[Rfam]
RNA sequence: CCCUUUCUCCCGGGGUCCAGUUUUCCCAGGAAUCCCUUGUUGAACAUGAAAGCGGGAUUCCUGGAAAUACUGUUCUUGGGGGCGGGGC
Dot-bracket structure: .................((((.((.(((((((((((.................))))))))))).)).))))................
Numbered sequence: 001c002c003c004u005u006u007c008u009c010c011c012g013g014g015g016u017c018c019a020g021u022u023u024u025c026c027c028a029g030g031a032a033u034c035c036c037u038u039g040u041u042g043a044a045c046a047u048g049a050a051a052g053c054g055g056g057a058u059u060c061c062u063g064g065a066a067a068u069a070c071u072g073u074u075c076u077u078g079g080g081g082g083c084g085g086g087g088c
Stems, first nucleotide, its partner, number of pairs: 018072004023067002026064011